Background: This 86-nucleotide sequence from Pomovirus solibetae belongs to the Rfam family "Tymovirus/Pomovirus/Furovirus tRNA-like 3' UTR element". For this family Rfam cites "The tRNA-like structure of Turnip yellow mosaic virus RNA is a 3'-translational enhancer" (Matsuda and Dreher, Virology, 2004). This family represents a tRNA-like structure found in the 3' UTR of Tymoviruses, Pomoviruses and Furovirus. Pairs were carried over by alignment from the consensus structure, which is taken from published work. Its family is annotated with regulation of translation in the Gene Ontology.
[Rfam]
RNA sequence: GGAUGAGACGAGUUAGUCUCGACCAUUUUCACACAAUGGUUCUGAGGGGUGCAACUCCCCCCCUUAACUAGAGGGAAAUCUAGCCC
Numbered sequence: 001g002g003a004u005g006a007g008a009c010g011a012g013u014u015a016g017u018c019u020c021g022a023c024c025a026u027u028u029u030c031a032c033a034c035a036a037u038g039g040u041u042c043u044g045a046g047g048g049g050u051g052c053a054a055c056u057c058c059c060c061c062c063c064u065u066a067a068c069u070a071g072a073g074g075g076a077a078a079u080c081u082a083g084c085c086c
Stems, first nucleotide, its partner, number of pairs: 004077001005020005012052001021041007046060004061075003068083005